[Rfam]
RNA sequence: UCCACCGUGAGGUGGAAUCUGAAGGAAGGCGGCGGCAAACCUCCGACCCGAGGUUCACGAACUCCAAUCGAGGCUAGCGACAGUUGGGUGAGUCUGCAAAACAAGACAAAGCCCUUGCUACCGAAGGCUGUCGAGAGUAAAUGGAGCGGGUAGAUGGAGGGAAAGACAACGUU
Number, nucleotide and partner (000 for none) at each position: 001u016002c015003c014004a013005c012006c011007g000008u000009g000010a000011g006012g005013u004014g003015g002016a001017a000018u000019c000020u000021g000022a000023a000024g000025g000026a000027a000028g173029g172030c171031g170032g000033c000034g000035g000036c165037a000038a000039a000040c160041c159042u158043c157044c156045g155046a151047c150048c149049c148050g147051a000052g000053g000054u000055u000056c000057a000058c000059g000060a000061a000062c146063u145064c144065c143066a142067a000068u000069c000070g000071a000072g000073g138074c137075u136076a000077g000078c133079g132080a131081c130082a129083g128084u000085u000086g114087g113088g112089u111090g000091a000092g107093u106094c105095u104096g000097c000098a000099a000100a000101a000102c000103a000104a095105g094106a093107c092108a000109a000110a000111g089112c088113c087114c086115u000116u000117g000118c000119u000120a000121c000122c000123g000124a000125a000126g000127g000128c083129u082130g081131u080132c079133g078134a000135g000136a075137g074138u073139a000140a000141a000142u066143g065144g064145a063146g062147c050148g049149g048150g047151u046152a000153g000154a000155u045156g044157g043158a042159g041160g040161g000162a000163a000164a000165g036166a000167c000168a000169a000170c031171g030172u029173u028
Shown here is a 173-nucleotide RNA from Alicyclobacillus tolerans, a member of the family "Group II catalytic intron D1-D4-3". The family has 406 seed sequences and 4,274 matches in Rfam 15.1. Group II introns are found in rRNA, tRNA and mRNA of organelles in fungi, plants and protists, and also in mRNA in bacteria. Lineage of the source: Bacteria > Bacillati > Caryophanales > Alicyclobacillaceae > Alicyclobacillus.